This 81-nucleotide sequence from Bemisia tabaci belongs to the Rfam family "Small nucleolar RNA SNORD53/SNORD92". The literature on the family includes a 1996 paper in Cell by Kiss-Laszlo et al., "Site-specific ribose methylation of preribosomal RNA: a novel function for small nucleolar RNAs". Lineage of the source: Eukaryota > Opisthokonta > Eumetabola > Aleyrodoidea > Bemisia. It is annotated as a C/D-box small nucleolar RNA. The base pairs follow the family's consensus structure. Its Rfam clan is "SNORD52 clan".
RNA sequence: UCGUCGUGAUGAUUCCAAGUAUGGUUUCGCAUUUUAAAUUCAGAUUUAAUUUUUGAUGAUACUCCUUGGCUGUCUGAACGA
Dot-bracket structure: ((((.........................................................................))))